[Rfam]
RNA sequence: AAUGUGGUUGAUGAUGCUCAACUUUUUUCCCCAUCUUAUCGACAAUGGUGAAUACCGACUGAAACUAAGCCAGUUUGAUCUGAAACCACAUU
Numbered sequence: 001a002a003u004g005u006g007g008u009u010g011a012u013g014a015u016g017c018u019c020a021a022c023u024u025u026u027u028u029c030c031c032c033a034u035c036u037u038a039u040c041g042a043c044a045a046u047g048g049u050g051a052a053u054a055c056c057g058a059c060u061g062a063a064a065c066u067a068a069g070c071c072a073g074u075u076u077g078a079u080c081u082g083a084a085a086c087c088a089c090a091u092u
Base pairs, nucleotide, nucleotide: 001092002091003090004089005088006087007086008085009084

Small nucleolar SNORD12/SNORD106: a 92-nucleotide sequence from Cyclopterus lumpus. Its Rfam clan is "SNORD12 clan". The family has 8 seed sequences and 2,264 matches in Rfam 15.1. The family's consensus secondary structure was predicted with RNAalifold.